The record is a 153-nucleotide RNA from Exiguobacterium artemiae, which matches "c-di-AMP riboswitch aptamer (ydaO/yuaA leader)" in Rfam. Taxonomically the source falls in Exiguobacterium artemiae (Bacteria, Bacilli, Caryophanales, Exiguobacterium). Rfam's curators put it in the seed alignment.

[Rfam]
RNA sequence: UCUCAAAGUACGCCGAGUUCAUGAUUGAAGCGGGGGACCCAACCGUCACGACACGUGACACGGGGUGAAUCUUCUCAGACAAGAGAAGUAGGGCAAAAUCCUAGGUAUGCCCGAAUCCGACAGCUAACCUCGCAGGCGUUUUAGGAGGGAACG
Number, nucleotide and partner (000 for none) at each position: 001u000002c000003u000004c000005a000006a000007a000008g000009u000010a000011c138012g137013c136014c135015g000016a000017g000018u029019u028020c027021a000022u000023g000024a000025u000026u000027g020028a019029a018030g133031c132032g131033g130034g129035g128036g000037a000038c000039c000040c062041a000042a000043c000044c000045g000046u000047c000048a000049c000050g000051a000052c000053a000054c000055g000056u000057g000058a000059c000060a000061c000062g040063g118064g117065g116066u000067g000068a000069a000070u000071c088072u087073u086074c085075u000076c000077a000078g000079a000080c000081a000082a000083g000084a000085g074086a073087a072088g071089u000090a000091g112092g111093g110094c109095a000096a000097a000098a000099u000100c000101c000102u000103a000104g000105g000106u000107a000108u000109g094110c093111c092112c091113g000114a000115a000116u065117c064118c063119g000120a000121c000122a000123g000124c000125u000126a000127a000128c035129c034130u033131c032132g031133c030134a000135g014136g013137c012138g011139u000140u000141u000142u000143a000144g000145g000146a000147g000148g000149g000150a000151a000152c000153g000